Rfam assigns this 119-nucleotide sequence from Saccharothrix sp. ST-888 to the family "Actinobacteria sRNA Ms_IGR-7". A reference for the family is Li et al. (2013), "Identification of small RNAs in Mycobacterium smegmatis using heterologous Hfq", RNA. The family's RNA type in Rfam is small RNA. The pairing is the family consensus, mapped onto this sequence.

RNA sequence: CGGAGAUGCCCCUCCAGACCCGGUGGAUGUAACCCUAGACAAGUCAUAUCUUCCCUGGUCUGAGGGCAUCUCCGCUUUCAUGUCCGGACCCUGGACCGGCUAUUGGCCGGUGGAUUCGG
Numbered sequence: 001c002g003g004a005g006a007u008g009c010c011c012c013u014c015c016a017g018a019c020c021c022g023g024u025g026g027a028u029g030u031a032a033c034c035c036u037a038g039a040c041a042a043g044u045c046a047u048a049u050c051u052u053c054c055c056u057g058g059u060c061u062g063a064g065g066g067c068a069u070c071u072c073c074g075c076u077u078u079c080a081u082g083u084c085c086g087g088a089c090c091c092u093g094g095a096c097c098g099g100c101u102a103u104u105g106g107c108c109g110g111u112g113g114a115u116u117c118g119g
Base pairs, nucleotide, nucleotide: 002073003072004071005070006069007068008067009066011065012064013063014062016061017060018059020057022055023054025051026050027049028048030046032044033043102115103114104113106111

A search with the family's covariance model found it, with a score of 54 bits.